Shown here is an 88-nucleotide RNA from Cocos nucifera, a member of the family "Small nucleolar RNA snoR27". Taxonomically the source falls in Cocos (Eukaryota, Streptophytina, Euphyllophyta, commelinids). It is annotated as a C/D-box small nucleolar RNA. Its family is annotated with nucleolus and RNA processing in the Gene Ontology. Its Rfam clan is "snR68 clan". The match comes from Rfam's covariance-model search (58 bits). A reference for the family is Brown et al. (2001), "Multiple snoRNA gene clusters from Arabidopsis", RNA.
RNA sequence: AUUGGAUCAAUGAUGUCUGUAGUCUGUGUUAUCUUUCUGUAACUUCAUUGAAGGAAUUGAAGAUGGCACUGAUGUACUGAGAUCUGUU
Numbered sequence: 001a002u003u004g005g006a007u008c009a010a011u012g013a014u015g016u017c018u019g020u021a022g023u024c025u026g027u028g029u030u031a032u033c034u035u036u037c038u039g040u041a042a043c044u045u046c047a048u049u050g051a052a053g054g055a056a057u058u059g060a061a062g063a064u065g066g067c068a069c070u071g072a073u074g075u076a077c078u079g080a081g082a083u084c085u086g087u088u
Base pairs, nucleotide, nucleotide: 001088003086004085005084006083007082